The family of this 96-nucleotide sequence is "Group II catalytic intron D1-D4-1". About the family: Group II introns are found in rRNA, tRNA and mRNA of organelles in fungi, plants and protists, and also in mRNA in bacteria. Pairs were carried over by alignment from the consensus structure. Rfam's curators put it in the seed alignment.

[Rfam]
RNA sequence: CGCUGGCAGAGGUAACUUUGCCAGUGAUUAAGCAGAAGUCAGCAGACGGCAUAGUAGCCCAACGGUCAGCGUAAUGGCUGAUACAUGGUGAAGGCC
Numbered sequence: 001c002g003c004u005g006g007c008a009g010a011g012g013u014a015a016c017u018u019u020g021c022c023a024g025u026g027a028u029u030a031a032g033c034a035g036a037a038g039u040c041a042g043c044a045g046a047c048g049g050c051a052u053a054g055u056a057g058c059c060c061a062a063c064g065g066u067c068a069g070c071g072u073a074a075u076g077g078c079u080g081a082u083a084c085a086u087g088g089u090g091a092a093g094g095c096c
Stems, first nucleotide, its partner, number of pairs: 001026002004023008038047003048096003057089003074086003